Rfam assigns this 154-nucleotide RNA from Amborella trichopoda to the family "MIR8565 microRNA precursor family".
[Rfam]
RNA sequence: CCCACACCCAUGUGUGUAGUACCUUAAAGGAUCACCAUUAAAUUUAACACAGAUCUCUAGAAAAGUUAUCACAUGGGUGUGAGACUUGACUUUUUUAGGCAUCUGUGCCAAAUUUAAUGAUGAUCCUUUGGGGUCCUACACUCAUGGGUGUGGA
Numbered sequence: 001c002c003c004a005c006a007c008c009c010a011u012g013u014g015u016g017u018a019g020u021a022c023c024u025u026a027a028a029g030g031a032u033c034a035c036c037a038u039u040a041a042a043u044u045u046a047a048c049a050c051a052g053a054u055c056u057c058u059a060g061a062a063a064a065g066u067u068a069u070c071a072c073a074u075g076g077g078u079g080u081g082a083g084a085c086u087u088g089a090c091u092u093u094u095u096u097a098g099g100c101a102u103c104u105g106u107g108c109c110a111a112a113u114u115u116a117a118u119g120a121u122g123a124u125c126c127u128u129u130g131g132g133g134u135c136c137u138a139c140a141c142u143c144a145u146g147g148g149u150g151u152g153g154a
Stems, first nucleotide, its partner, number of pairs: 002153011015140005021134008030125003034121001036119010048107007056099013069082005